[Rfam]
RNA sequence: CGCCUCAUGUCUGAAAGGACGACGGUGUGAACCGGAGCGAGAAGUCAGCAGAGGCCAUAGUAGCCACGAGGUUGUGGUGAAGGGC
Numbered sequence: 001c002g003c004c005u006c007a008u009g010u011c012u013g014a015a016a017g018g019a020c021g022a023c024g025g026u027g028u029g030a031a032c033c034g035g036a037g038c039g040a041g042a043a044g045u046c047a048g049c050a051g052a053g054g055c056c057a058u059a060g061u062a063g064c065c066a067c068g069a070g071g072u073u074g075u076g077g078u079g080a081a082g083g084g085c
Stems, first nucleotide, its partner, number of pairs: 001029002005024001008021005045052002054085003063078006
RNA: Group II catalytic intron D1-D4-1
Organism: Pseudomonas japonica